[Rfam]
This 399-nucleotide RNA sequence from Flexibacter flexilis belongs to the Rfam family "Bacterial RNase P class A". From the family's description: Ribonuclease P (RNase P) is a ubiquitous endoribonuclease, found in archaea, bacteria and eukarya as well as chloroplasts and mitochondria.
RNA sequence: GAUGUGGGGCAUCUUAUCGCUGCAACUCGCCUAAGAGUUGAAGAGGAAAGUCUGGGCAACAUAGGGCAACCGUACUUCCUAACGGGAAGGAGCAUAAGGUCUAAAGCCUUGUGUUACAGAAAGUGCAACAGAGAAGAUACCGCCUGCUUUCGGGCAGGUAAGGGUGAAAUGGUAGAGUAAGAGCCUACCGCUUUGCUGGCGACAGCAAAGGCAUGGCAAACCUUACGGGUUGAAAAACCAAAUAGGCUGGCGCAACUCCGCUUGCGGAGGGAAAGGGCUGCCCGCUCGAUGCCAGUGGGUAGGUUGAUGGAGCAUUGGCGUGAGCCUCUGCCUAGAUAAAUGAUAAGACGUUUGCCUCGUGCAAACUGACAGAACCCGGCUUAUCGCCCCACAUUUUUU
Numbered sequence: 001g002a003u004g005u006g007g008g009g010c011a012u013c014u015u016a017u018c019g020c021u022g023c024a025a026c027u028c029g030c031c032u033a034a035g036a037g038u039u040g041a042a043g044a045g046g047a048a049a050g051u052c053u054g055g056g057c058a059a060c061a062u063a064g065g066g067c068a069a070c071c072g073u074a075c076u077u078c079c080u081a082a083c084g085g086g087a088a089g090g091a092g093c094a095u096a097a098g099g100u101c102u103a104a105a106g107c108c109u110u111g112u113g114u115u116a117c118a119g120a121a122a123g124u125g126c127a128a129c130a131g132a133g134a135a136g137a138u139a140c141c142g143c144c145u146g147c148u149u150u151c152g153g154g155c156a157g158g159u160a161a162g163g164g165u166g167a168a169a170u171g172g173u174a175g176a177g178u179a180a181g182a183g184c185c186u187a188c189c190g191c192u193u194u195g196c197u198g199g200c201g202a203c204a205g206c207a208a209a210g211g212c213a214u215g216g217c218a219a220a221c222c223u224u225a226c227g228g229g230u231u232g233a234a235a236a237a238c239c240a241a242a243u244a245g246g247c248u249g250g251c252g253c254a255a256c257u258c259c260g261c262u263u264g265c266g267g268a269g270g271g272a273a274a275g276g277g278c279u280g281c282c283c284g285c286u287c288g289a290u291g292c293c294a295g296u297g298g299g300u301a302g303g304u305u306g307a308u309g310g311a312g313c314a315u316u317g318g319c320g321u322g323a324g325c326c327u328c329u330g331c332c333u334a335g336a337u338a339a340a341u342g343a344u345a346a347g348a349c350g351u352u353u354g355c356c357u358c359g360u361g362c363a364a365a366c367u368g369a370c371a372g373a374a375c376c377c378g379g380c381u382u383a384u385c386g387c388c389c390c391a392c393a394u395u396u397u398u399u
Base pairs, nucleotide, nucleotide: 001395002394003393004392005391006390007389008388009387010386011384012348013347014346015345016344017343018342020043021042023040024039025038026037027036028035048382049381050380052379053378054377055376056375057232058231059230060229065283066282070228071227072226073225074224075089076088077087078086079085090117091115092114093113094112095111096110097109098108099107100106118223119222123221124220125217126216140163141162142159143158144157145156146155147154148153171189172188173187174186175185190212191210192209193208194207195206196205197204198203236305237304238303239302246296247295248294249293250292251291275287276286277285278284312331313330314329317326318325319324